[Rfam]
RNA sequence: AAAAUUGCUUUCUAGGGUUCCGUUUAAAAGCUUUUAAAGUCUGGUCCGAGAGAGAGCGUACAGUACGUCUGUAUACACGGAGGGAUAAAAGCCCGGGAGAA
Numbered sequence: 001a002a003a004a005u006u007g008c009u010u011u012c013u014a015g016g017g018u019u020c021c022g023u024u025u026a027a028a029a030g031c032u033u034u035u036a037a038a039g040u041c042u043g044g045u046c047c048g049a050g051a052g053a054g055a056g057c058g059u060a061c062a063g064u065a066c067g068u069c070u071g072u073a074u075a076c077a078c079g080g081a082g083g084g085a086u087a088a089a090a091g092c093c094c095g096g097g098a099g100a101a
Stems, first nucleotide, its partner, number of pairs: 007057006015047002020044002022041001023038006058074006076096001078099001082094003
Dot-bracket structure: ......((((((..((...(((((((((....))))))..).)).))....))))))((((((.....)))))).(.[...(((.......))).)..]..
The record is a 101-nucleotide RNA sequence from Neobacillus cucumis, which matches "Guanidine-I riboswitch aptamer" in Rfam. Rfam links the family to the GO term regulation of gene expression. Lineage of the source: Bacteria > Bacillota > Caryophanales > Bacillaceae > Neobacillus. The pairing is the family consensus, mapped onto this sequence. The match comes from Rfam's covariance-model search (94 bits).